[Rfam]
This 348-nucleotide sequence from Lachnospiraceae bacterium RM5 belongs to the Rfam family "Bacterial RNase P class A".

RNA sequence: UGAGUAGAACUGAUGAUCGCGGUUGCGAUAUCCGAAAGGAUGCAAGUGAGGAAAGUCCGGGCUUCAUAGGGCAGGAUGCCAGAUAACGUCUGGUGGAGGCGACUCUAAGGAAAGUGCAACAGAGAAAAUACCGCUUACCUAAGGUAAGUAAGGGUGAAAUGGCGAGGUAAGAGCUCACCGCCUGUAUGGUAACAUGCAGGGUCAGUGUAAACCCCAUUCGAAGCAAGACCGAACAGAAAUUAUGGCGGCCCGUCAAUAUUUCGGGUAGGUCGCUUGAUUCUAUUAGCGAUAAUAGAACUAGAUAGAUGAUCAUCUAAUACAUAACCCGGCUUAUGUUCUACUCAAUUU
Numbered sequence: 001u002g003a004g005u006a007g008a009a010c011u012g013a014u015g016a017u018c019g020c021g022g023u024u025g026c027g028a029u030a031u032c033c034g035a036a037a038g039g040a041u042g043c044a045a046g047u048g049a050g051g052a053a054a055g056u057c058c059g060g061g062c063u064u065c066a067u068a069g070g071g072c073a074g075g076a077u078g079c080c081a082g083a084u085a086a087c088g089u090c091u092g093g094u095g096g097a098g099g100c101g102a103c104u105c106u107a108a109g110g111a112a113a114g115u116g117c118a119a120c121a122g123a124g125a126a127a128a129u130a131c132c133g134c135u136u137a138c139c140u141a142a143g144g145u146a147a148g149u150a151a152g153g154g155u156g157a158a159a160u161g162g163c164g165a166g167g168u169a170a171g172a173g174c175u176c177a178c179c180g181c182c183u184g185u186a187u188g189g190u191a192a193c194a195u196g197c198a199g200g201g202u203c204a205g206u207g208u209a210a211a212c213c214c215c216a217u218u219c220g221a222a223g224c225a226a227g228a229c230c231g232a233a234c235a236g237a238a239a240u241u242a243u244g245g246c247g248g249c250c251c252g253u254c255a256a257u258a259u260u261u262c263g264g265g266u267a268g269g270u271c272g273c274u275u276g277a278u279u280c281u282a283u284u285a286g287c288g289a290u291a292a293u294a295g296a297a298c299u300a301g302a303u304a305g306a307u308g309a310u311c312a313u314c315u316a317a318u319a320c321a322u323a324a325c326c327c328g329g330c331u332u333a334u335g336u337u338c339u340a341c342u343c344a345a346u347u348u
Stems, first nucleotide, its partner, number of pairs: 001344010012314007020048002023045005053332003057329005062223004069251004074219005079093005094108001095106004109214002114212002116208003131153002133149007161179002164176003180203001181200008227271004236262005243255004278297008
Dot-bracket structure: ((((((((((.(((((((.((.(((((.............))))).))....[[[.[[[[[((((...[[[[.((((((((((.....)))))(((((....)))).)((...(((((............(((((((((...)))))))..)).......((.(((.......))).))(((((((((....))))))))..)..)))..)))))))))))))...((((.....(((((..((((.]]]]))))..))))).....))))......((((((((....))))))))..........)))))))..........]]]]]]]]..))))))))))....

The family's consensus secondary structure is taken from published work. By type it is a ribozyme.